[Rfam]
Annotation:
The family of this 68-nucleotide RNA from Gongylonema pulchrum is "Rubella virus 3' cis-acting element".

RNA sequence: UUGCUGUGCAGCGCUAUAGCGCUGCACAGCAAAGACGCAUAAAGAUACAUGUAAAGGGCUACAGAAUU
Number, nucleotide and partner (000 for none) at each position: 001u032002u031003g030004c029005u000006g027007u026008g025009c024010a023011g022012c021013g020014c019015u000016a000017u000018a000019g014020c013021g012022c011023u010024g009025c008026a007027c006028a000029g004030c003031a002032a001033a060034g059035a000036c057037g000038c000039a000040u000041a000042a050043a000044g000045a000046u000047a000048c000049a000050u042051g000052u000053a000054a000055a000056g000057g036058g000059c034060u033061a000062c000063a000064g000065a000066a000067u000068u000
From the family's description: This family represents a cis-acting element found at the 3' UTR in the rubella virus. This family contains three conserved step loop structures.
The literature on the family includes a 1999 paper in J Virol by Chen and Frey, "Mutagenic analysis of the 3' cis-acting elements of the rubella virus genome".
The base pairs follow the family's consensus structure, which is taken from published work.